The family of this 65-nucleotide sequence is "S15-Flavobacteria ribosomal protein leader".

RNA sequence: UACUUUUGCACGAUCGAAUAGAAAAUCUAUUCUAGCAUAAAAAUUAUUGAAAUAAUAUUGGCAUG
Numbered sequence: 001u002a003c004u005u006u007u008g009c010a011c012g013a014u015c016g017a018a019u020a021g022a023a024a025a026u027c028u029a030u031u032c033u034a035g036c037a038u039a040a041a042a043a044u045u046a047u048u049g050a051a052a053u054a055a056u057a058u059u060g061g062c063a064u065g
Stems, first nucleotide, its partner, number of pairs: 016032005